Record summary: The family of this 140-nucleotide RNA from Trinickia dinghuensis is "ZMP/ZTP riboswitch aptamer (pfl RNA motif)". The source organism's lineage runs through Bacteria, Pseudomonadati, Betaproteobacteria, Burkholderiales and Trinickia. Its family is annotated with one-carbon metabolic process and regulation of purine nucleotide biosynthetic process in the Gene Ontology.

RNA sequence: AUCGGUCCGCGCAACUGGCGCCGUGAGAUGGAGUUCACCAUCGGGAAGCGCGGGACGGGGCGAGCGUGACCGCUUUUUCUCGCGGUAUUGCAUCGUGCGUGCCCUUGUCGACCGAUUCGCCGCGCGCCUGGGCAUGCAAG
Number, nucleotide and partner (000 for none) at each position: 001a000002u000003c057004g056005g000006u054007c053008c052009g051010c050011g049012c048013a000014a000015c045016u044017g128018g127019c126020g125021c124022c000023g000024u000025g000026a000027g000028a041029u040030g039031g038032a000033g000034u000035u000036c000037a000038c031039c030040a029041u028042c000043g000044g016045g015046a000047a000048g012049c011050g010051c009052g008053g007054g006055a000056c004057g003058g000059g000060g000061c000062g000063a000064g000065c000066g000067u000068g000069a000070c000071c000072g000073c000074u000075u000076u000077u000078u000079c000080u000081c000082g000083c000084g000085g000086u000087a000088u000089u000090g000091c000092a000093u000094c000095g000096u000097g000098c000099g000100u000101g000102c000103c000104c000105u000106u000107g000108u000109c000110g000111a000112c000113c000114g000115a000116u000117u000118c000119g133120c132121c131122g000123c000124g021125c020126g019127c018128c017129u000130g000131g121132g120133c119134a000135u000136g000137c000138a000139a000140g000
About this RNA
A search with the family's covariance model found it, with a score of 45 bits. The family's consensus secondary structure is taken from published work.